[Rfam]
RNA sequence: GUAAAUCAAACGAUUUUCUCAGGGCCUUUCAUAAGACCUUAAGAUAAAUUUUGGGACGCUUACUGAAUAGUGAGCGUA
Numbered sequence: 001g002u003a004a005a006u007c008a009a010a011c012g013a014u015u016u017u018c019u020c021a022g023g024g025c026c027u028u029u030c031a032u033a034a035g036a037c038c039u040u041a042a043g044a045u046a047a048a049u050u051u052u053g054g055g056a057c058g059c060u061u062a063c064u065g066a067a068u069a070g071u072g073a074g075c076g077u078a
Stems, first nucleotide, its partner, number of pairs: 022039003026035003056077009